[Rfam]
RNA sequence: AGACCCAUCCCAGCGGGGAUAUAAGGCCAAACGGACAGCCGGGGGUCGCAUGCCGA
Numbered sequence: 001a002g003a004c005c006c007a008u009c010c011c012a013g014c015g016g017g018g019a020u021a022u023a024a025g026g027c028c029a030a031a032c033g034g035a036c037a038g039c040c041g042g043g044g045g046u047c048g049c050a051u052g053c054c055g056a
Stems, first nucleotide, its partner, number of pairs: 002047004007020005
Streptococcus sRNA SpF59 (ldcC RNA): a 56-nucleotide RNA sequence. It is one of the family's seed sequences. The literature on the family includes a 2012 paper in PLoS Pathog by Mann et al., "Control of virulence by small RNAs in Streptococcus pneumoniae". It is annotated as a small RNA.